[Rfam]
RNA: Small nucleolar RNA Z278
RNA sequence: AUGAAUGAUGAUACAUCCAUCUUUUUGAGGUGUAGUUGCCUCAGGGCCCUGUUUACAGGGAGAACCUACCUGAUGUGCUGCAUUCUGUAAUGAAAUUGCUGGAUCUGUCUGACAA
Numbered sequence: 001a002u003g004a005a006u007g008a009u010g011a012u013a014c015a016u017c018c019a020u021c022u023u024u025u026u027g028a029g030g031u032g033u034a035g036u037u038g039c040c041u042c043a044g045g046g047c048c049c050u051g052u053u054u055a056c057a058g059g060g061a062g063a064a065c066c067u068a069c070c071u072g073a074u075g076u077g078c079u080g081c082a083u084u085c086u087g088u089a090a091u092g093a094a095a096u097u098g099c100u101g102g103a104u105c106u107g108u109c110u111g112a113c114a115a
Base pairs, nucleotide, nucleotide: 002114003113047060048059049058050057051056